[Rfam]
RNA sequence: GUAGGGUACGGUGACAUGGCGCCGAAAACGUAUCUAGGCAUGUUCGUGGGCGCGCUCUGUGCAUUGGCCGGCGUCUUGACUAUCGCUCUGCCAGUGCCAGUGAUCGUCUCAAAC
Numbered sequence: 001g002u003a004g005g006g007u008a009c010g011g012u013g014a015c016a017u018g019g020c021g022c023c024g025a026a027a028a029c030g031u032a033u034c035u036a037g038g039c040a041u042g043u044u045c046g047u048g049g050g051c052g053c054g055c056u057c058u059g060u061g062c063a064u065u066g067g068c069c070g071g072c073g074u075c076u077u078g079a080c081u082a083u084c085g086c087u088c089u090g091c092c093a094g095u096g097c098c099a100g101u102g103a104u105c106g107u108c109u110c111a112a113a114c
Base pairs, nucleotide, nucleotide: 001114002113005110008107009106010105011104014101015100018097021095022094037077038076040074050062051061

Shown here is a 114-nucleotide RNA sequence from Papilio machaon, a member of the family "Potassium channel RNA editing signal". A search with the family's covariance model found it, with a score of 85 bits. By type it is a cis-regulatory element. About the family: This family represents a group of sequences related to the human potassium channel Kv1.1 hairpin element which directs the efficient modification of an adenosine to inosine by an adenosine deaminase acting on RNA (ADAR). The ADAR modification causes an isoleucine/valine recoding event which lies in the ion-conducting pore of the potassium channel. It is thought that this editing event targets the process of fast inactivation and allows a more rapid recovery from inactivation at negative potentials.